[Rfam]
The family of this 80-nucleotide RNA sequence is "skipping-rope RNA".
RNA sequence: GAAAAUUGACGAGCAGGAAAGGCACCCUGCGCUCCCGAAAGGGAACCUGAUAUGAUGGAUACGCCGCCCAUCCAAUUUUU
Numbered sequence: 001g002a003a004a005a006u007u008g009a010c011g012a013g014c015a016g017g018a019a020a021g022g023c024a025c026c027c028u029g030c031g032c033u034c035c036c037g038a039a040a041g042g043g044a045a046c047c048u049g050a051u052a053u054g055a056u057g058g059a060u061a062c063g064c065c066g067c068c069c070a071u072c073c074a075a076u077u078u079u080u
Stems, first nucleotide, its partner, number of pairs: 001080008013030005021065003032049001033044004054072005
Notes: It is annotated as a small RNA.